[Rfam]
RNA: Glycine riboswitch aptamer
Organism: Pseudooceanicola albus
Nucleotides: 089
Stems, first nucleotide, its partner, number of pairs: 006084006013078002020034004036069003039065002043063003049057002
Number, partner (000 for none) and nucleotide at each position: 001000c002000g003000c004000c005000a006084u007083c008082g009081g010080a011079a012000c013078g014077g015000g016000a017000g018000a019000a020034c021033c022032g023031g024000c025000c026000c027000u028000g029000c030000g031023c032022c033021g034020g035000u036069g037068c038067c039065g040064a041000a042000g043063g044062a045061g046000c047000a048000a049057c050056c051000g052000c053000c054000c055000c056050g057049g058000a059000a060000a061045c062044u063043c064040u065039c066000a067038g068037g069036c070000a071000u072000c073000a074000g075000g076000a077014c078013c079011u080010u081009c082008c083007g084006a085000u086000u087000u088000u089000g